The family of this 71-nucleotide sequence from Nephila pilipes is "mir-2 microRNA precursor family". On this family, see Ambros, Cell 2001: "microRNAs: tiny regulators with great potential".

RNA sequence: CUGCUCAUCAGAGUGGUUGUGGUAUGUGUUGUAAAGAAGUUUCAUAUCACAGCCAGCUUUGAUGAGCGGAG
Dot-bracket structure: ....((((((((((((((((((..(((................)))))))))))).)))))))))......